RNA sequence: AUAUUAAUUUGUAGCUCAGGGGAAAUACCAUCAUCACCAAGGGGGUUUCCCUGGGGUGAGGCUUAUCCAUUGCCCUUGGGCUGUGCUGACUCUUUUGAUUUCCCCAAAUGUGGGAAACUUGACAGCAUAGUUUGUGGUAGUCGGGGACUGCAUUCAUAUUUCCUCCAG
Numbered sequence: 001a002u003a004u005u006a007a008u009u010u011g012u013a014g015c016u017c018a019g020g021g022g023a024a025a026u027a028c029c030a031u032c033a034u035c036a037c038c039a040a041g042g043g044g045g046u047u048u049c050c051c052u053g054g055g056g057u058g059a060g061g062c063u064u065a066u067c068c069a070u071u072g073c074c075c076u077u078g079g080g081c082u083g084u085g086c087u088g089a090c091u092c093u094u095u096u097g098a099u100u101u102c103c104c105c106a107a108a109u110g111u112g113g114g115a116a117a118c119u120u121g122a123c124a125g126c127a128u129a130g131u132u133u134g135u136g137g138u139a140g141u142c143g144g145g146g147a148c149u150g151c152a153u154u155c156a157u158a159u160u161u162c163c164u165c166c167a168g
Stems, first nucleotide, its partner, number of pairs: 014126003018052006027046003031042001053094004058090001060087003064083002067080002096121003099117003103113002143166004150159001152157001